[Rfam]
RNA: Small nucleolar RNA SNORA25
RNA sequence: AGGUUAUUUCAAAGAGGGCUCAUGAGGCUAGGAAACCAAGAACUCUUAAUGCUAUGACCAAAGAUUGAAGUUCUCUAUAGAAUGCCAUAGCACUCAAUAAUGUUAUGUUUUCUUGAGGCAUAUAAGA
Numbered sequence: 001a002g003g004u005u006a007u008u009u010c011a012a013a014g015a016g017g018g019c020u021c022a023u024g025a026g027g028c029u030a031g032g033a034a035a036c037c038a039a040g041a042a043c044u045c046u047u048a049a050u051g052c053u054a055u056g057a058c059c060a061a062a063g064a065u066u067g068a069a070g071u072u073c074u075c076u077a078u079a080g081a082a083u084g085c086c087a088u089a090g091c092a093c094u095c096a097a098u099a100a101u102g103u104u105a106u107g108u109u110u111u112c113u114u115g116a117g118g119c120a121u122a123u124a125a126g127a
Base pairs, nucleotide, nucleotide: 002059003058004057005056006055007054014047015046016045017044018043020041021040023039026037027036072120074118075117076116079113080112081111082110087106088105089104090103091102092101094099
Dot-bracket structure: .((((((......(((((.((.(..((........)).))).)))))......))))))............(.(((..((((....((((((.(....).))))))...))))..))).).......